[Rfam]
RNA: Bacterial large subunit ribosomal RNA, nucleotides 2141 to 2727
RNA sequence: UCCGCGGCUAGACGGAAAGACCCCGUGAACCUUUACUAUAGCUUCACACUGGACUUUGAUGUUAUUUGUGUAGGAUAGGUGGGAGGCUUUGAAGCUGUGACGCUAGUUGCAGUGGAGCCAACCUUGAAAUACCACCCUGAUAACAUUGAGGUUCUAACGUCGGCCUCGAAACGAGGUUACGGACCGUGUGUGGUGGGUAGUUUGACUGGGGCGGUCUCCUCCUAAAGAGUAACGGAGGAGUACGAAGGUGCGCUAAGCAUGGUCGGAAAUCAUGCGGUUAGUAUAAUGGCAUAAGCGCGCUUGACUGCGAGACGGACAGGUCGAGCAGGUACGAAAGUAGGUCAUAGUGAUCCGGUGGUUCUGUAUGGAAGGGCCAUCGCUCAACGGAUAAAAGGUACUCCGGGGAUAACAGGCUGAUACCGCCCAAGAGUUCACAUCGACGGCGGUGUUUGGCACCUCGAUGUCGGCUCAUCACAUCCUGGGGCUGAAGCCGGUCCCAAGGGUAUGGCUGUUCGCCAUUUAAAGUGGUACGCGAGCUGGGUUUAGAACGUCGUGAGACAGUUCGGUCCCUAUCUGCCGUGGACGUU
Numbered sequence: 001u002c003c004g005c006g007g008c009u010a011g012a013c014g015g016a017a018a019g020a021c022c023c024c025g026u027g028a029a030c031c032u033u034u035a036c037u038a039u040a041g042c043u044u045c046a047c048a049c050u051g052g053a054c055u056u057u058g059a060u061g062u063u064a065u066u067u068g069u070g071u072a073g074g075a076u077a078g079g080u081g082g083g084a085g086g087c088u089u090u091g092a093a094g095c096u097g098u099g100a101c102g103c104u105a106g107u108u109g110c111a112g113u114g115g116a117g118c119c120a121a122c123c124u125u126g127a128a129a130u131a132c133c134a135c136c137c138u139g140a141u142a143a144c145a146u147u148g149a150g151g152u153u154c155u156a157a158c159g160u161c162g163g164c165c166u167c168g169a170a171a172c173g174a175g176g177u178u179a180c181g182g183a184c185c186g187u188g189u190g191u192g193g194u195g196g197g198u199a200g201u202u203u204g205a206c207u208g209g210g211g212c213g214g215u216c217u218c219c220u221c222c223u224a225a226a227g228a229g230u231a232a233c234g235g236a237g238g239a240g241u242a243c244g245a246a247g248g249u250g251c252g253c254u255a256a257g258c259a260u261g262g263u264c265g266g267a268a269a270u271c272a273u274g275c276g277g278u279u280a281g282u283a284u285a286a287u288g289g290c291a292u293a294a295g296c297g298c299g300c301u302u303g304a305c306u307g308c309g310a311g312a313c314g315g316a317c318a319g320g321u322c323g324a325g326c327a328g329g330u331a332c333g334a335a336a337g338u339a340g341g342u343c344a345u346a347g348u349g350a351u352c353c354g355g356u357g358g359u360u361c362u363g364u365a366u367g368g369a370a371g372g373g374c375c376a377u378c379g380c381u382c383a384a385c386g387g388a389u390a391a392a393a394g395g396u397a398c399u400c401c402g403g404g405g406a407u408a409a410c411a412g413g414c415u416g417a418u419a420c421c422g423c424c425c426a427a428g429a430g431u432u433c434a435c436a437u438c439g440a441c442g443g444c445g446g447u448g449u450u451u452g453g454c455a456c457c458u459c460g461a462u463g464u465c466g467g468c469u470c471a472u473c474a475c476a477u478c479c480u481g482g483g484g485c486u487g488a489a490g491c492c493g494g495u496c497c498c499a500a501g502g503g504u505a506u507g508g509c510u511g512u513u514c515g516c517c518a519u520u521u522a523a524a525g526u527g528g529u530a531c532g533c534g535a536g537c538u539g540g541g542u543u544u545a546g547a548a549c550g551u552c553g554u555g556a557g558a559c560a561g562u563u564c565g566g567u568c569c570c571u572a573u574c575u576g577c578c579g580u581g582g583a584c585g586u587u
Base pairs, nucleotide, nucleotide: 001583002582003581004580005579006578007577008576010575011574012573014570015569022404023403024402025401027400028399029396030395031394032393033392035201036200037199038198042193043192045190046189047188048187051154052153053152054151055150056149057148058147059146060145061144062143063142064141065140066139068137078136079135080134081133082132085119086118087117094113095112096111097110098109099108100107101106158181159180160179162178163177164176165175166174167173204216205215206214207213217239218238219237220236221235222234240385242342243341248300249299250298251297252296253295254280255279257275258274259273260272261271262270281290282289305328306327307326308325311322312321313320330339331338332337353379354378355377356376357375358374359373361372362371413454414453415452417451418448419447420446421445422444423443424442428438429437465540466538467537468536469535470532471529472528473527474526475525478503479502481498482497483496484495485494486493505519506518507517508516509515546564547563548562549561550559551558552557